Rfam assigns this 87-nucleotide sequence from Centaurea solstitialis to the family "Small nucleolar RNA R12".

[Rfam]
RNA sequence: AUGAGGAUGACGAAAACUUAGACGAAUUUCUAAUGAUUUCUCUUUUAUUAGAGAAAGUGAAGUUACAACCAGCUACUUCUGACUCAU
Numbered sequence: 001a002u003g004a005g006g007a008u009g010a011c012g013a014a015a016a017c018u019u020a021g022a023c024g025a026a027u028u029u030c031u032a033a034u035g036a037u038u039u040c041u042c043u044u045u046u047a048u049u050a051g052a053g054a055a056a057g058u059g060a061a062g063u064u065a066c067a068a069c070c071a072g073c074u075a076c077u078u079c080u081g082a083c084u085c086a087u
Stems, first nucleotide, its partner, number of pairs: 001087005
The match comes from Rfam's covariance-model search (58 bits). NCBI's taxonomy places the organism under Eukaryota, Spermatophyta, eudicotyledons, asterids, Centaurea. Rfam's curators write: snoR12 is a C/D box small nucleolar RNA, which acts as a methylation guide for 25S ribosomal RNA in plants. snoR12 has been alternatively named snoZ44 in Arabidopsis and snoZ131 in rice. The base pairs follow the family's consensus structure, which was predicted with PFOLD.